[Rfam]
RNA: L31-Actinobacteria ribosomal protein leader
RNA sequence: CUGGUUCCGGUUCACGUGCCCGAUCCCGUGCACGACCCGGCGACC
Numbered sequence: 001c002u003g004g005u006u007c008c009g010g011u012u013c014a015c016g017u018g019c020c021c022g023a024u025c026c027c028g029u030g031c032a033c034g035a036c037c038c039g040g041c042g043a044c045c
Stems, first nucleotide, its partner, number of pairs: 003045003007040004015034005021028002